[Rfam]
RNA sequence: CAGCGCUGACGCAGCUGGUCUCCAGGGAACUGGAGGCGGGACACAUUGAACCGUCACUUAGUAGGUGGAACACGCCCAUCUUUGUUAUCUGGAAACCAUCGGGGUCCUUCCGUUUAUUGCAUGAUCUUCGGGCUGUUAAUGCACAGCUCGUCCAGUUCGGUCCCGUUCAGCAAGGCAGUCCAUCACUUGCAGCUGUUCCCAGGGGAUGGCCCCUUGUGGUCAUUGACCUUAAGGAUUGCUUUUUCUCCAUCCCUUUGGCAGAACAGGACCGGGAGGCUUUUGCAUUCAC
Dot-bracket structure: ..........(((...(((...............................((..(........)..))..................((((.(.......).))))......)))...))).....................(....((.((.(.....((..(((.((.....((((((.((.....))..))))).).....)).)))..))..((((...........................))))..........).)).))...)..................
Numbered sequence: 001c002a003g004c005g006c007u008g009a010c011g012c013a014g015c016u017g018g019u020c021u022c023c024a025g026g027g028a029a030c031u032g033g034a035g036g037c038g039g040g041a042c043a044c045a046u047u048g049a050a051c052c053g054u055c056a057c058u059u060a061g062u063a064g065g066u067g068g069a070a071c072a073c074g075c076c077c078a079u080c081u082u083u084g085u086u087a088u089c090u091g092g093a094a095a096c097c098a099u100c101g102g103g104g105u106c107c108u109u110c111c112g113u114u115u116a117u118u119g120c121a122u123g124a125u126c127u128u129c130g131g132g133c134u135g136u137u138a139a140u141g142c143a144c145a146g147c148u149c150g151u152c153c154a155g156u157u158c159g160g161u162c163c164c165g166u167u168c169a170g171c172a173a174g175g176c177a178g179u180c181c182a183u184c185a186c187u188u189g190c191a192g193c194u195g196u197u198c199c200c201a202g203g204g205g206a207u208g209g210c211c212c213c214u215u216g217u218g219g220u221c222a223u224u225g226a227c228c229u230u231a232a233g234g235a236u237u238g239c240u241u242u243u244u245c246u247c248c249a250u251c252c253c254u255u256u257g258g259c260a261g262a263a264c265a266g267g268a269c270c271g272g273g274a275g276g277c278u279u280u281u282g283c284a285u286u287c288a289c
Stems, first nucleotide, its partner, number of pairs: 011120003017114003051068002055064001087105004092100001142271001147267002150264002153261001159213002163209003167205002174198001175196005181189002216250004